The record is a 559-nucleotide part of an RNA from Pediculus humanus, which matches "Eukaryotic small subunit ribosomal RNA" in Rfam.
On this family, see Yusupov et al., Science 2001: "Crystal structure of the ribosome at 5.5 A resolution".
Its family is annotated with structural constituent of ribosome and ribosome in the Gene Ontology.
Lineage of the source: Eukaryota > Altocrustacea > Insecta > Anoplura > Pediculus humanus.

[Rfam]
RNA sequence: UGUUUCAAAGAUUAAGCCAUGCAUGUCUCAGUGCAAGCCGAAUUAAGGUGAAACCGCGAAAGGCUCAUUAAAUCAGCUAUGAUUCAAUUGAUGGUACGAUCACGGUUACUUGGAUAACUGUGGCAAUUCUAGAGCUAAUACAUGCCAAACGAGUUCCGACCGCGGGUUCGAACGAUCUCGCGGAACGAAUGCUUUUAUUAGAACAAAACCAAUCGGAUCUCGUUCGUUCGAACGAGAUCCGCAAAUCUAUGACGAAUCUGAAUAACUUUGAGCUGAUCGCACGGUCCAUAGAACCGGCGACGCAUCUUUCAAAUGUCUGACUUAUCAACUUUCGAUGGUAGGCUACGCGCCUACCAUGGUGAUAACGGGUGACGGGGAAUCAGGGUUCGAUACCGGAGAGGGAGCCUGAGAAACGGCUACCACAUCCAAGGAAGGCAGCAGGCGCGCAAAUUACCCACUCCCGGCACGGGGAGGUAGUGACGAAAAAUAACGAUGCAGGACUCUUUUCGAGGCUCUGCAAUCGGAAUGAGAACACUCUAAAUCAUUUAACGAGUAUCCA
Numbered sequence: 001u002g003u004u005u006c007a008a009a010g011a012u013u014a015a016g017c018c019a020u021g022c023a024u025g026u027c028u029c030a031g032u033g034c035a036a037g038c039c040g041a042a043u044u045a046a047g048g049u050g051a052a053a054c055c056g057c058g059a060a061a062g063g064c065u066c067a068u069u070a071a072a073u074c075a076g077c078u079a080u081g082a083u084u085c086a087a088u089u090g091a092u093g094g095u096a097c098g099a100u101c102a103c104g105g106u107u108a109c110u111u112g113g114a115u116a117a118c119u120g121u122g123g124c125a126a127u128u129c130u131a132g133a134g135c136u137a138a139u140a141c142a143u144g145c146c147a148a149a150c151g152a153g154u155u156c157c158g159a160c161c162g163c164g165g166g167u168u169c170g171a172a173c174g175a176u177c178u179c180g181c182g183g184a185a186c187g188a189a190u191g192c193u194u195u196u197a198u199u200a201g202a203a204c205a206a207a208a209c210c211a212a213u214c215g216g217a218u219c220u221c222g223u224u225c226g227u228u229c230g231a232a233c234g235a236g237a238u239c240c241g242c243a244a245a246u247c248u249a250u251g252a253c254g255a256a257u258c259u260g261a262a263u264a265a266c267u268u269u270g271a272g273c274u275g276a277u278c279g280c281a282c283g284g285u286c287c288a289u290a291g292a293a294c295c296g297g298c299g300a301c302g303c304a305u306c307u308u309u310c311a312a313a314u315g316u317c318u319g320a321c322u323u324a325u326c327a328a329c330u331u332u333c334g335a336u337g338g339u340a341g342g343c344u345a346c347g348c349g350c351c352u353a354c355c356a357u358g359g360u361g362a363u364a365a366c367g368g369g370u371g372a373c374g375g376g377g378a379a380u381c382a383g384g385g386u387u388c389g390a391u392a393c394c395g396g397a398g399a400g401g402g403a404g405c406c407u408g409a410g411a412a413a414c415g416g417c418u419a420c421c422a423c424a425u426c427c428a429a430g431g432a433a434g435g436c437a438g439c440a441g442g443c444g445c446g447c448a449a450a451u452u453a454c455c456c457a458c459u460c461c462c463g464g465c466a467c468g469g470g471g472a473g474g475u476a477g478u479g480a481c482g483a484a485a486a487a488u489a490a491c492g493a494u495g496c497a498g499g500a501c502u503c504u505u506u507u508c509g510a511g512g513c514u515c516u517g518c519a520a521u522c523g524g525a526a527u528g529a530g531a532a533c534a535c536u537c538u539a540a541a542u543c544a545u546u547u548a549a550c551g552a553g554u555a556u557c558c559a
Base pairs, nucleotide, nucleotide: 003485004484005483006482009478010445016443017442018441020440021439022438025057026056031054032053037049038048064398065397066396073320074319075318076317079314080313083312084311090306091305092304109144111142112141118134119133121131122130123129153190154189155188156187160183161182162181163180164179165178166177195265196264197263198262199261210251211250225234226233227232277300278299279298280297282296283295284294285293321369322368323367328360329359330358335357336356337355338354339353340352341351342350373395374394375393377388378387379386380385400421401420403418404417405416423434425432426431451476453475454474455473459471460470461469462468463467491523492522493521494519495518496517497516498515499514501511502510503509530550532547534546536544
Dot-bracket structure: ..((((..((.....(((.(((..((....((....((.........))...)).))......(((......((((..((..((.....(((................(.((.....((.(((.....))).))......)).)........((((...(((((((..........)))))))...))))....(((((..........((.............(((....)))...............)).........)))))...........((((.((((.......))))))))...)))....))))..))))(((....(((....((((((((.......)))))))))))......)))...(((.((((....))))....)))))).((.(((..........))).)).(.((....)).)...)))))).).....(.(((...(((((...))))).)))).)...)))).....(((((((((.(((.....)))..)))))).)))......(.(.(.(.......).))..).........